[Rfam]
RNA sequence: CCAAAGGCUCUUUUCAGAGCCACCCACCUAAUCACCAGAAAGAGCU
Numbered sequence: 001c002c003a004a005a006g007g008c009u010c011u012u013u014u015c016a017g018a019g020c021c022a023c024c025c026a027c028c029u030a031a032u033c034a035c036c037a038g039a040a041a042g043a044g045c046u
Stems, first nucleotide, its partner, number of pairs: 006021006
The record is a 46-nucleotide RNA from Myotis lucifugus, which matches "Histone 3' UTR stem-loop" in Rfam. The mRNAs of metazoan histone genes lack a poly-A tail. 3' end processing occurs at a site between a highly conserved stem-loop (modelled by this family) and a purine rich region around 20 nts downstream (the histone downstream element, or HDE). The stem-loop is bound by a 31 kDa stem-loop binding protein (SLBP - also termed the histone hairpin binding protein, or HBP). Together with U7 snRNA binding of the HDE, SLBP binding nucleate s the formation of the processing complex. The match comes from Rfam's covariance-model search (37 bits). The source organism's lineage runs through Eukaryota, Chordata, Tetrapoda, Eutheria and Myotis.